Rfam assigns this 189-nucleotide sequence from Nannospalax galili to the family "Small Cajal body specific RNA 16".
RNA sequence: GCCGUUUAAAAGAAGGUUUGCCCUGUGUGGUUGGAUCUGCCUGAGGUGGGUUCAGCCUUGUACCAGACAGCCUGACCUUGACCCAAAGUAAAUUCCUAGGUGGAAGUUUCCCUGGGUUUAGAAUUUGCAGUAAUAGAUGUGAACAUACUAGCAGCACUUUGAUGAUCAUGUAGGACACUGCAAACAGGA
Numbered sequence: 001g002c003c004g005u006u007u008a009a010a011a012g013a014a015g016g017u018u019u020g021c022c023c024u025g026u027g028u029g030g031u032u033g034g035a036u037c038u039g040c041c042u043g044a045g046g047u048g049g050g051u052u053c054a055g056c057c058u059u060g061u062a063c064c065a066g067a068c069a070g071c072c073u074g075a076c077c078u079u080g081a082c083c084c085a086a087a088g089u090a091a092a093u094u095c096c097u098a099g100g101u102g103g104a105a106g107u108u109u110c111c112c113u114g115g116g117u118u119u120a121g122a123a124u125u126u127g128c129a130g131u132a133a134u135a136g137a138u139g140u141g142a143a144c145a146u147a148c149u150a151g152c153a154g155c156a157c158u159u160u161g162a163u164g165a166u167c168a169u170g171u172a173g174g175a176c177a178c179u180g181c182a183a184a185c186a187g188g189a
Stems, first nucleotide, its partner, number of pairs: 004082003008078001015072004019067001023066003027063002029057005035051003095116003099111002102108001124184008134174001140168003144164003150159002
A search with the family's covariance model found it, with a score of 130 bits.
scaRNAs are a specific class of small nuclear RNAs which localise to the Cajal bodies and guide the modification of RNA polymerase II transcribed spliceosomal RNAs U1, U2, U4, U5 and U12.